[Rfam]
Annotation:
mir-7360 microRNA precursor family: a 61-nucleotide RNA from Monodelphis domestica. Taxonomically the source falls in Monodelphis (Eukaryota, Vertebrata, Didelphimorphia, Didelphinae). Its family is annotated with miRNA-mediated post-transcriptional gene silencing and RISC complex in the Gene Ontology. It scores 57 bits against the family's covariance model.
RNA sequence: UCCUUUCUGUAGGUGUGUUAUUUAUAUAAAACAAAUUGAAUAUUGUAUCACAGAAUGGACU
Numbered sequence: 001u002c003c004u005u006u007c008u009g010u011a012g013g014u015g016u017g018u019u020a021u022u023u024a025u026a027u028a029a030a031a032c033a034a035a036u037u038g039a040a041u042a043u044u045g046u047a048u049c050a051c052a053g054a055a056u057g058g059a060c061u
Base pairs, nucleotide, nucleotide: 001059002058003057006054007053008052009051010050012049013048014047015046016045017044019042020041021040023039026036027035
Dot-bracket structure: (((..(((((.((((((.(((.(..((.......))..)))).)))))))))))..)))..